[Rfam]
Nucleotides: 377
Base pairs, nucleotide, nucleotide: 006024007023008022009021010020011019025375026374027373028372033355034354035353036352039336040335044068045067046066047065048064049063053061054060075332076331077330078329080111081110085106086105087104089102091100092099093098115132116131117130118129119128135328136327137326138325139324140323141322142321143320147313148312152308153307154306155305160295161294162293163292166290171284172283173282174281175280176196177195178194179193180192181191203251204250205249206248210244211243212242215235216234217233218232220231222230223229260275261274262273264271341350342349357369358368359367
Number, partner (000 for none) and nucleotide at each position: 001000g002000a003000u004000a005000a006024a007023a008022c009021a010020g011019g012000u013000g014000a015000g016000a017000a018000u019011c020010c021009u022008g023007u024006u025375c026374g027373c028372c029000g030000a031000a032000a033355g034354c035353c036352u037000a038000a039336g040335g041000u042000u043000u044068c045067c046066u047065g048064g049063g050000g051000a052000a053061g054060g055000u056000a057000a058000u059000u060054c061053c062000g063049c064048c065047c066046a067045g068044g069000g070000u071000u072000a073000g074000c075332c076331g077330g078329u079000a080111c081110c082000u083000u084000a085106g086105u087104c088000g089102a090000g091100g092099c093098c094000g095000a096000a097000a098093g099092g100091c101000g102089u103000a104087g105086a106085c107000g108000a109000u110081g111080g112000a113000u114000a115132g116131c117130a118129g119128g120000u121000c122000a123000a124000c125000a126000u127000u128119c129118c130117u131116g132115c133000g134000c135328c136327a137326a138325g139324u140323g141322u142321g143320u144000g145000g146000a147313g148312c149000g150000a151000u152308g153307g154306a155305g156000g157000g158000a159000c160295g161294g162293c163292g164000u165000c166290c167000g168000a169000a170000a171284a172283g173282c174281a175280u176196g177195c178194g179193g180192a181191c182000u183000a184000a185000u186000a187000g188000a189000u190000u191181g192180u193179c194178c195177g196176u197000u198000g199000c200000u201000c202000g203251g204250g205249u206248c207000u208000a209000a210244g211243a212242u213000u214000g215235g216234a217233g218232g219000a220231u221000u222230g223229g224000u225000a226000a227000a228000u229223c230222c231220g232218c233217c234216u235215c236000a237000a238000u239000a240000g241000g242212a243211u244210c245000a246000a247000g248206g249205a250204c251203c252000c253000g254000a255000g256000c257000u258000a259000a260275c261274a262273g263000c264271a265000u266000u267000c268000a269000a270000g271264u272000u273262c274261u275260g276000g277000a278000u279000g280175a281174u282173g283172u284171u285000g286000g287000a288000a289000g290166g291000a292163c293162g294161u295160c296000c297000a298000a299000g300000a301000a302000a303000a304000g305155c306154u307153u308152c309000u310000a311000a312148g313147u314000g315000u316000u317000g318000a319000a320143g321142c322141a323140c324139a325138c326137u327136u328135g329078a330077c331076c332075g333000u334000a335040c336039u337000a338000a339000a340000a341350c342349u343000g344000a345000c346000a347000c348000a349342g350341g351000u352036a353035g354034g355033c356000g357369a358368g359367a360000u361000g362000a363000g364000u365000a366000u367359u368358c369357u370000a371000a372028g373027g374026c375025g376000c377000u

This 377-nucleotide part of an RNA from Stieleria bergensis belongs to the Rfam family "Bacterial large subunit ribosomal RNA". The family's consensus secondary structure is taken from published work. It scores 2661 bits against the family's covariance model.